[Rfam]
RNA sequence: GAUCGCGGUGAUGACUCCAAAAAUUCAAGCUCAACAGACCGGAAUGCAGGUUUCUCUCUUUUGGAGAAAUUUGCGUGUCGACAAUCCCGCUGAACUGAGUGAUC
Numbered sequence: 001g002a003u004c005g006c007g008g009u010g011a012u013g014a015c016u017c018c019a020a021a022a023a024u025u026c027a028a029g030c031u032c033a034a035c036a037g038a039c040c041g042g043a044a045u046g047c048a049g050g051u052u053u054c055u056c057u058c059u060u061u062u063g064g065a066g067a068a069a070u071u072u073g074c075g076u077g078u079c080g081a082c083a084a085u086c087c088c089g090c091u092g093a094a095c096u097g098a099g100u101g102a103u104c
Stems, first nucleotide, its partner, number of pairs: 001104006

Shown here is a 104-nucleotide RNA from Tetracentron sinense, a member of the family "Small nucleolar RNA Z107/R87". Rfam links the family to the GO terms nucleolus and RNA processing. A search with the family's covariance model found it, with a score of 90 bits. Rfam 15.1 lists 783 matches to the family in 221 species. It is annotated as a C/D-box small nucleolar RNA. The literature on the family includes a 2003 paper in Nucleic Acids Res by Chen et al., "The high diversity of snoRNAs in plants: identification and comparative study of 120 snoRNA genes from Oryza sativa". NCBI's taxonomy places the organism under Eukaryota, Streptophyta, Spermatophyta, Trochodendraceae, Tetracentron. Pairs were carried over by alignment from the consensus structure, which was predicted with RNAfold.